[Rfam]
RNA sequence: AUGCUUACAGGCAGGGGAGAUACCAUGGUCACAAAGGUGGUUUUUCCAGGGCCAGGCUUAUGCACUGCACCCUGGAUAUGCUGCCCCCUAUGAUUUCCUUAAAAGUGGGAAACUCGACUGCAUAAUUUGUGGUAGUGGGGGACUGUGUUCGUGCUCUCCUCUG
Number, nucleotide and partner (000 for none) at each position: 001a000002u000003g000004c000005u000006u000007a000008c000009a000010g000011g121012c120013a119014g118015g047016g046017g045018a044019g043020a042021u000022a041023c040024c039025a038026u037027g000028g000029u000030c000031a000032c000033a000034a000035a000036g000037g026038u025039g024040g023041u022042u020043u019044u018045u017046c016047c015048a089049g088050g087051g086052c000053c000054a000055g082056g081057c080058u000059u078060a077061u076062g000063c074064a000065c000066u000067g000068c000069a000070c000071c000072c000073u000074g063075g000076a061077u060078a059079u000080g057081c056082u055083g000084c000085c000086c051087c050088c049089u048090a000091u116092g115093a114094u112095u111096u110097c000098c108099u107100u000101a000102a000103a000104a000105g000106u000107g099108g098109g000110a096111a095112a094113c000114u093115c092116g091117a000118c014119u013120g012121c011122a000123u000124a000125a000126u000127u000128u000129g000130u000131g000132g000133u000134a000135g000136u000137g162138g161139g160140g159141g158142a157143c000144u000145g154146u153147g152148u000149u000150c000151g000152u147153g146154c145155u000156c000157u142158c141159c140160u139161c138162u137163g000
RNA: U1 spliceosomal RNA
Organism: Myotis brandtii